[Rfam]
RNA sequence: CCAGUCGGCCGGGCAGCCGCGCUUCGCUAGGGUCGAAAGACUGCGAGGCGAGGAAAGUCCGGGCUCCACGGAAACACGGUGCCGGUUAAUGGCCGGCGGGGGCGACCCCAGGGAAAGUGCCACAGAAAGCAAACCGCCCGCCUCUGGCGGGUAAGGGUGAAAGGGUGGGGUAAGAGCCCACCGCGCGACCGGCAACGGAAGCGGCACGGUAAACCCCACCGGGAGCAAGACCGAAUAGGGAUGACGCGGCGAAAGCCGGCCGGUUUCCAGGCCAGUCAUCCGGGUAGGUUGCUUGAGGCGUGUUGCAAGACACGUCCCAGAGGAAUGGCUGCCACGUUCCGCGCAAGCGGGGCCAUACAGAACCCGGCUUACAGGCCGGCUGGCAUU
Dot-bracket structure: ((((((((((((((((((.((((((((...............))))))))....[[[.[[[[[((((.....[[..((((((((((.....)))))(((((....)))).)((...(((((............(((((((((...)))))))..)).......((((((.......))))))((((..(((....)))..))).)..)))..)))))))))))))...((((......((((((..............(.(...]]....).)..)))))).....))))......((((((((....))))))))..........))))))).............................]]]]]]]].).))))))))))....
RNA: Bacterial RNase P class A